Overview:
The record is a 114-nucleotide RNA from Chelonoidis abingdonii, which matches "mraW RNA" in Rfam. Lineage of the source: Eukaryota > Eumetazoa > Sauropsida > Testudinidae > Chelonoidis nigra species complex. The match comes from Rfam's covariance-model search (58 bits). The family's RNA type in Rfam is cis-regulatory element.

RNA sequence: UAGCAGUGUAGGCAUUUGGGCUCAGGCUGAAGCCCUGGCUCUGAGACCCAUCCCACUUGCCAGGUCUCAGAGCCAGGACUCCAGCCUGAGCCCAAAUGCCUACAUUGCUAUUUU
Numbered sequence: 001u002a003g004c005a006g007u008g009u010a011g012g013c014a015u016u017u018g019g020g021c022u023c024a025g026g027c028u029g030a031a032g033c034c035c036u037g038g039c040u041c042u043g044a045g046a047c048c049c050a051u052c053c054c055a056c057u058u059g060c061c062a063g064g065u066c067u068c069a070g071a072g073c074c075a076g077g078a079c080u081c082c083a084g085c086c087u088g089a090g091c092c093c094a095a096a097u098g099c100c101u102a103c104a105u106u107g108c109u110a111u112u113u114u
Stems, first nucleotide, its partner, number of pairs: 010101007018093002021090009031080002034077014